[Rfam]
RNA sequence: ACGACCUUACUUGAACAGGAUCUGUUAUAUAGGCUUGUACCACUGUAUCCUUGUCUUCUAAGGAGACAGGAAAUUAAGUCUGGCUGAUGAAGCAAGGCCGUGUGACUAGAGCGUGAUUAACAGCCACAUAUGGCUCGUCGAGCUUGUGGAGCAGUAGAUGAUCGUUCUCGGACCUGGCAACAGGUCUGAGGUGGUCGCACGACUGUUUUAUAGUAA
Numbered sequence: 001a002c003g004a005c006c007u008u009a010c011u012u013g014a015a016c017a018g019g020a021u022c023u024g025u026u027a028u029a030u031a032g033g034c035u036u037g038u039a040c041c042a043c044u045g046u047a048u049c050c051u052u053g054u055c056u057u058c059u060a061a062g063g064a065g066a067c068a069g070g071a072a073a074u075u076a077a078g079u080c081u082g083g084c085u086g087a088u089g090a091a092g093c094a095a096g097g098c099c100g101u102g103u104g105a106c107u108a109g110a111g112c113g114u115g116a117u118u119a120a121c122a123g124c125c126a127c128a129u130a131u132g133g134c135u136c137g138u139c140g141a142g143c144u145u146g147u148g149g150a151g152c153a154g155u156a157g158a159u160g161a162u163c164g165u166u167c168u169c170g171g172a173c174c175u176g177g178c179a180a181c182a183g184g185u186c187u188g189a190g191g192u193g194g195u196c197g198c199a200c201g202a203c204u205g206u207u208u209u210a211u212a213g214u215a216a
Stems, first nucleotide, its partner, number of pairs: 001038002003035001005033003014026005043069004048064006080213003097203001099201010110166004120155002123152002127148004132144005168189009
The record is a 216-nucleotide RNA from Capsicum baccatum, which matches "Plant small nucleolar RNA U3" in Rfam.
The family's RNA type in Rfam is C/D-box small nucleolar RNA.
The family has 24 seed sequences and 3,759 matches in Rfam 15.1.
Small nucleolar RNAs (snoRNAs) are involved in the processing and modification of rRNA in the nucleolus. There are two main classes of snoRNAs: the box C/D class, and the box H/ACA class. U3 snoRNA is a member of the box C/D class. Indeed, the box C/D element is a subset of the six short sequence elements found in all U3 snoRNAs, namely boxes A, A', B, C, C', and D. The U3 snoRNA secondary structure is characterised by a small 5' domain (with boxes A and A'), and a larger 3' domain (with boxes B, C, C', and D), the two domains being linked by a single-stranded hinge.
The family's consensus secondary structure is taken from published work.
The source organism's lineage runs through Eukaryota, Viridiplantae, Streptophyta, Capsiceae and Capsicum.
Clan: U3 clan.